[Rfam]
RNA sequence: AUUAAUAACCGGGGUCGUGUACCCCAAAAUUUAAU
Numbered sequence: 001a002u003u004a005a006u007a008a009c010c011g012g013g014g015u016c017g018u019g020u021a022c023c024c025c026a027a028a029a030u031u032u033a034a035u
Stems, first nucleotide, its partner, number of pairs: 001035005011025005